[Rfam]
Rfam assigns this 576-nucleotide RNA sequence to the family "ROOL RNA". Pairs were carried over by alignment from the consensus structure, which is taken from published work. Firmicutes, Fusobacteria (1 example), Tenericutes (1 example). It is one of the family's seed sequences.
RNA sequence: AUGAAUAUUGAAAACGAUUUUUAACCAUGUGUAUGCCGUUGGUCAACGGGUCAUGGGAGCAGUUAAACUCGCGAACGUAAGAGGAUACCCUUACGUAUAGGCAGAGAGUUAGUUAUCAGUAAUGAUAAUUAAUACGACCAGAUAAGCUGGUGAAUUAAUUGCUGCGCAAGUAAUAAUCGUAAACGCAAAAAGUCUAGUCACCUGGGGUGGAACAAUAGACGGCUCUGUGAGCAAGAAUCCAAGUUAGGGUUGGGGUGGAAGCCAAUCAGUCCUUGGAAAUCCAAUAAUCCACUCUGUAGUUGAAGCCGAGAAAUUGGCUAUAACCAGGGCAGCUAGGACAAGUAGCCGAAGCUACAGCAUAUUGACUAAUUAAUCGCUCGUGAAAGAGCGAAACGAAAAGAAAAUUUGCUGAAUGACUGGUGAAAGUUGGAGGUAAAGUCCUCCUGCGGAAAUGGCUUUUAGCUGGGGUAAGAAGCAAUAGGGUAGCUCCCUAUUGUUCAGCCUUAUCUCCCGCAUGACUGAAUAUUGGGCGUUUAUUAUUUGUAGGACGAAGGUCCAAAAAUGUUUUCUAUAUUC
Numbered sequence: 001a002u003g004a005a006u007a008u009u010g011a012a013a014a015c016g017a018u019u020u021u022u023a024a025c026c027a028u029g030u031g032u033a034u035g036c037c038g039u040u041g042g043u044c045a046a047c048g049g050g051u052c053a054u055g056g057g058a059g060c061a062g063u064u065a066a067a068c069u070c071g072c073g074a075a076c077g078u079a080a081g082a083g084g085a086u087a088c089c090c091u092u093a094c095g096u097a098u099a100g101g102c103a104g105a106g107a108g109u110u111a112g113u114u115a116u117c118a119g120u121a122a123u124g125a126u127a128a129u130u131a132a133u134a135c136g137a138c139c140a141g142a143u144a145a146g147c148u149g150g151u152g153a154a155u156u157a158a159u160u161g162c163u164g165c166g167c168a169a170g171u172a173a174u175a176a177u178c179g180u181a182a183a184c185g186c187a188a189a190a191a192g193u194c195u196a197g198u199c200a201c202c203u204g205g206g207g208u209g210g211a212a213c214a215a216u217a218g219a220c221g222g223c224u225c226u227g228u229g230a231g232c233a234a235g236a237a238u239c240c241a242a243g244u245u246a247g248g249g250u251u252g253g254g255g256u257g258g259a260a261g262c263c264a265a266u267c268a269g270u271c272c273u274u275g276g277a278a279a280u281c282c283a284a285u286a287a288u289c290c291a292c293u294c295u296g297u298a299g300u301u302g303a304a305g306c307c308g309a310g311a312a313a314u315u316g317g318c319u320a321u322a323a324c325c326a327g328g329g330c331a332g333c334u335a336g337g338a339c340a341a342g343u344a345g346c347c348g349a350a351g352c353u354a355c356a357g358c359a360u361a362u363u364g365a366c367u368a369a370u371u372a373a374u375c376g377c378u379c380g381u382g383a384a385a386g387a388g389c390g391a392a393a394c395g396a397a398a399a400g401a402a403a404a405u406u407u408g409c410u411g412a413a414u415g416a417c418u419g420g421u422g423a424a425a426g427u428u429g430g431a432g433g434u435a436a437a438g439u440c441c442u443c444c445u446g447c448g449g450a451a452a453u454g455g456c457u458u459u460u461a462g463c464u465g466g467g468g469u470a471a472g473a474a475g476c477a478a479u480a481g482g483g484u485a486g487c488u489c490c491c492u493a494u495u496g497u498u499c500a501g502c503c504u505u506a507u508c509u510c511c512c513g514c515a516u517g518a519c520u521g522a523a524u525a526u527u528g529g530g531c532g533u534u535u536a537u538u539a540u541u542u543g544u545a546g547g548a549c550g551a552a553g554g555u556c557c558a559a560a561a562a563u564g565u566u567u568u569c570u571a572u573a574u575u576c
Base pairs, nucleotide, nucleotide: 009571010570012568013567014566019562020561021560022559025056026055027054028053029052036049037048038047039046058163059162060161061160062159063158068106069105070104071102072101075096076095077094078093079092080091081090083088108133109132110131111130112129113128114127115126116125117124118123137151138150139149140148141147170541173538176535186529188527191526192520195335196334197333198332201328202327203326204325205324206293207292208291209290210289211288222232223231224230225229238277239276240275241274242273243272248267249266250265251264252263253262256283257282258281259280295356296355297354298353299352305318306317307316308315309314339426345421346420347419348418408502409501410500411499430444432442433441446514447513448512449463465511466510467509468508471505472504475498477495478494479493480492481491482490483489546557547556548555549554